[Rfam]
RNA sequence: CAACAAGCUGUCUAGGGUUCCGUGGCACAGUAAUACAAUGUGUCAGCUGGUCCGAGAGAUGGCGUAUGGAGCGAUUCGCUUCAUAUACACGGAAGGACAAAAGCCUGGGAGAU
Numbered sequence: 001c002a003a004c005a006a007g008c009u010g011u012c013u014a015g016g017g018u019u020c021c022g023u024g025g026c027a028c029a030g031u032a033a034u035a036c037a038a039u040g041u042g043u044c045a046g047c048u049g050g051u052c053c054g055a056g057a058g059a060u061g062g063c064g065u066a067u068g069g070a071g072c073g074a075u076u077c078g079c080u081u082c083a084u085a086u087a088c089a090c091g092g093a094a095g096g097a098c099a100a101a102a103g104c105c106u107g108g109g110a111g112a113u
Stems, first nucleotide, its partner, number of pairs: 007063006015053002020050002022047001023045006064086008088108001090111001094106003
RNA: Guanidine-I riboswitch aptamer